[Rfam]
RNA sequence: ACACAUUCUCAGGGCGGGGUGAAAAUCCCCACCGGCGGUGACAGCCCGCGAGCCUUUACAGGUAAGAUUCAGGUGAAAAUCCUGAGCCGACGGUUACAGUCCGGAUAGAAGAGAGUAGUU
Numbered sequence: 001a002c003a004c005a006u007u008c009u010c011a012g013g014g015c016g017g018g019g020u021g022a023a024a025a026u027c028c029c030c031a032c033c034g035g036c037g038g039u040g041a042c043a044g045c046c047c048g049c050g051a052g053c054c055u056u057u058a059c060a061g062g063u064a065a066g067a068u069u070c071a072g073g074u075g076a077a078a079a080u081c082c083u084g085a086g087c088c089g090a091c092g093g094u095u096a097c098a099g100u101c102c103g104g105a106u107a108g109a110a111g112a113g114a115g116u117a118g119u120u
Base pairs, nucleotide, nucleotide: 005116006115007114008113009112010111017029018028019027031100032099033089034088035049036048037047038046044087045086054062069085070084071083072082073081091103092102093101
This 120-nucleotide RNA sequence from Ruminobacter amylophilus belongs to the Rfam family "FMN riboswitch aptamer (RFN element)".
Taxonomically the source falls in Ruminobacter (Bacteria, Pseudomonadati, Gammaproteobacteria, Aeromonadales).
Its family is annotated with FMN binding in the Gene Ontology.